[Rfam]
RNA sequence: GUUUGGGUUCAAGAUUAGCCCCCUCAUAUUGUCAGGUGCAUACCUGCAACAUGCGGGGGUUUUCU
Numbered sequence: 001g002u003u004u005g006g007g008u009u010c011a012a013g014a015u016u017a018g019c020c021c022c023c024u025c026a027u028a029u030u031g032u033c034a035g036g037u038g039c040a041u042a043c044c045u046g047c048a049a050c051a052u053g054c055g056g057g058g059g060u061u062u063u064c065u
Base pairs, nucleotide, nucleotide: 017061018060019059020058021057022056023055024053027051029049030048031047035043
RNA: rdlD antitoxin